[Rfam]
RNA sequence: UAAGCGAAAGGCCAAACCUACCGAGAGGUAGGGGCGGAAAGUCGCGGAUCCUAAGAUCCCGGAUUCUGGGAUCAAGGACAGCCGGACUGCCGAG
Numbered sequence: 001u002a003a004g005c006g007a008a009a010g011g012c013c014a015a016a017c018c019u020a021c022c023g024a025g026a027g028g029u030a031g032g033g034g035c036g037g038a039a040a041g042u043c044g045c046g047g048a049u050c051c052u053a054a055g056a057u058c059c060c061g062g063a064u065u066c067u068g069g070g071a072u073c074a075a076g077g078a079c080a081g082c083c084g085g086a087c088u089g090c091c092g093a094g
Base pairs, nucleotide, nucleotide: 012037013036017032018031019030020029021028022027040088041087042086043085045084046083047082049078050077055073056072057071058070059069060068061067062066

Shown here is a 94-nucleotide RNA from Thiocapsa marina, a member of the family "c-di-GMP-I riboswitch aptamer". Rfam describes the family as follows. GEMM was predicted in a large-scale screen for bacterial structured RNA regulatory elements. The source organism's lineage runs through Bacteria, Pseudomonadota, Chromatiaceae, Thiocapsa and Thiocapsa marina.